A member of the RNA family "S15-Halobacteria ribosomal protein leader", 64 nucleotides long. The base pairs follow the family's consensus structure, which is taken from published work. Rfam's curators put it in the seed alignment. A reference for the family is Eckert and Weinberg (2020), "Discovery of 20 novel ribosomal leader candidates in bacteria and archaea", BMC Microbiol. The family is grouped with related families in Rfam's "Ribosomal Protein S15 Leader clan". The family's RNA type in Rfam is cis-regulatory leader.
RNA sequence: UUGGGAACAGCACGGCCGCAAGUCUGACUCGCCGUAUUUUGACGGCUUGGGAUUGCGGAAGUGU
Numbered sequence: 001u002u003g004g005g006a007a008c009a010g011c012a013c014g015g016c017c018g019c020a021a022g023u024c025u026g027a028c029u030c031g032c033c034g035u036a037u038u039u040u041g042a043c044g045g046c047u048u049g050g051g052a053u054u055g056c057g058g059a060a061g062u063g064u
Stems, first nucleotide, its partner, number of pairs: 010064004016058006024051002031046005